Bacteroidales-1 6S-Bacteroidales RNA suggested: a 191-nucleotide RNA from Prevotella sp. oral taxon 299.
Pairs were carried over by alignment from the consensus structure, which is taken from published work.
[Rfam]
RNA sequence: GGUUGUGUCGGUUUGAUUGGGAUACUCAUCAAAUUAUUUCAGAAAACCGAGAUUGUUUCUUUUGUUAAUGGCGGGCCAUAUAAAUCUCUUUUAAAAGAGGCUAAGCUGCAAAGCCGAUGGAUUACAAAGACGGAGAACACUCAAAUCUUUUUUAGCUCGGAGUUUCAUCACAUCAUCGAGCAACCCCUUUC
Numbered sequence: 001g002g003u004u005g006u007g008u009c010g011g012u013u014u015g016a017u018u019g020g021g022a023u024a025c026u027c028a029u030c031a032a033a034u035u036a037u038u039u040c041a042g043a044a045a046a047c048c049g050a051g052a053u054u055g056u057u058u059c060u061u062u063u064g065u066u067a068a069u070g071g072c073g074g075g076c077c078a079u080a081u082a083a084a085u086c087u088c089u090u091u092u093a094a095a096a097g098a099g100g101c102u103a104a105g106c107u108g109c110a111a112a113g114c115c116g117a118u119g120g121a122u123u124a125c126a127a128a129g130a131c132g133g134a135g136a137a138c139a140c141u142c143a144a145a146u147c148u149u150u151u152u153u154a155g156c157u158c159g160g161a162g163u164u165u166c167a168u169c170a171c172a173u174c175a176u177c178g179a180g181c182a183a184c185c186c187c188u189u190u191c
Stems, first nucleotide, its partner, number of pairs: 055138003059135001061134006069126002076120004105114003

It is annotated as a small RNA. Rfam's curators write: Bacteroidales-1 was first reported in a comparative genomics-based approach of genome and metagenome sequences from Weinberg et al. 2010 In a high-resolution transcriptome map study of Bacteroides thetaiotaomicron, Ryan et al. 2020 report this sRNA as 6S RNA homologue of Bacteroides, in the study they obtain evidence of small product RNAs (pRNAs) related to 6S function.